The record is an 87-nucleotide RNA sequence from Mycoplasma capricolum, which matches "tRNA" in Rfam. Pairs were carried over by alignment from the consensus structure, which is taken from published work. Transfer RNA (tRNA) molecules are approximately 80 nucleotides in length. The sequence is in the family's curated seed alignment. Rfam 15.1 lists 5,335,975 matches to the family in 14,413 species.
[Rfam]
RNA sequence: GGGUUAAUACUCAAGUUGGUGAAGAGGACACCCUGCUAAGGUGUUAGGUCGGUCUCCGGCGCGAGGGUUCGAGUCCCUCUUAACCCG
Numbered sequence: 001g002g003g004u005u006a007a008u009a010c011u012c013a014a015g016u017u018g019g020u021g022a023a024g025a026g027g028a029c030a031c032c033c034u035g036c037u038a039a040g041g042u043g044u045u046a047g048g049u050c051g052g053u054c055u056c057c058g059g060c061g062c063g064a065g066g067g068u069u070c071g072a073g074u075c076c077c078u079c080u081u082a083a084c085c086c087g
Stems, first nucleotide, its partner, number of pairs: 001086007010026003028044005063079005